[Rfam]
RNA sequence: GUGCAUCCAAUAGGAAUUGAAUCUACGAAUUCGCCAAGAGUUGGGUGCUUUAACCAUUCAGCCAUGGAUGC
Numbered sequence: 001g002u003g004c005a006u007c008c009a010a011u012a013g014g015a016a017u018u019g020a021a022u023c024u025a026c027g028a029a030u031u032c033g034c035c036a037a038g039a040g041u042u043g044g045g046u047g048c049u050u051u052a053a054c055c056a057u058u059c060a061g062c063c064a065u066g067g068a069u070g071c
Stems, first nucleotide, its partner, number of pairs: 003071006011025004036065001038063001040062008
RNA: Plastid-ycf2 5UTR RNA
Organism: Gossypium lobatum